Small nucleolar RNA SNORD26: a 77-nucleotide RNA from Colius striatus. The family's consensus secondary structure was predicted with PFOLD. Rfam 15.1 lists 451 matches to the family in 401 species. Rfam classes the family as a C/D-box small nucleolar RNA. Rfam links the family to the GO terms nucleolus and RNA processing. A reference for the family is Tycowski et al. (1996), "A mammalian gene with introns instead of exons generating stable RNA products", Nature.

RNA sequence: CCGCGGUGAUGAUCCCCCUUUGAACUCUCUCUUACCGACAGCCCCGUGGGGAAAAGAACGAACGGGAUCUGAGCGGU
Numbered sequence: 001c002c003g004c005g006g007u008g009a010u011g012a013u014c015c016c017c018c019u020u021u022g023a024a025c026u027c028u029c030u031c032u033u034a035c036c037g038a039c040a041g042c043c044c045c046g047u048g049g050g051g052a053a054a055a056g057a058a059c060g061a062a063c064g065g066g067a068u069c070u071g072a073g074c075g076g077u
Stems, first nucleotide, its partner, number of pairs: 001076004